[Rfam]
RNA sequence: CGAGGCGGUGAGCGCAGAAGGGCCUCGCCGCGAGGCGACCUGGAGCCGCCGUCUGUGCAGAU
Numbered sequence: 001c002g003a004g005g006c007g008g009u010g011a012g013c014g015c016a017g018a019a020g021g022g023c024c025u026c027g028c029c030g031c032g033a034g035g036c037g038a039c040c041u042g043g044a045g046c047c048g049c050c051g052u053c054u055g056u057g058c059a060g061a062u
Stems, first nucleotide, its partner, number of pairs: 001057001003054008012046002020041002027036003

Shown here is a 62-nucleotide part of an RNA from Pediculus humanus, a member of the family "Eukaryotic large subunit ribosomal RNA".
The source organism's lineage runs through Eukaryota, Eumetazoa, Altocrustacea, Eumetabola and Pediculus humanus.
The family's consensus secondary structure is taken from published work.
Its family is annotated with ribosome and structural constituent of ribosome in the Gene Ontology.